RNA sequence: GGGGCGAAAGAGCAAACCCGGCGCAAGCCGGGGACGCAAAGCCACGGGGCCUACUGGGCCGGCUGGGCUACCGAC
Numbered sequence: 001g002g003g004g005c006g007a008a009a010g011a012g013c014a015a016a017c018c019c020g021g022c023g024c025a026a027g028c029c030g031g032g033g034a035c036g037c038a039a040a041g042c043c044a045c046g047g048g049g050c051c052u053a054c055u056g057g058g059c060c061g062g063c064u065g066g067g068c069u070a071c072c073g074a075c
Stems, first nucleotide, its partner, number of pairs: 012037002017032006040069004045065003048060005
Dot-bracket structure: ...........((...((((((....))))))...))..((((.((((((((...)))))..)))))))......
RNA: c-di-GMP-I riboswitch aptamer
Organism: Actinoplanes sp. OR16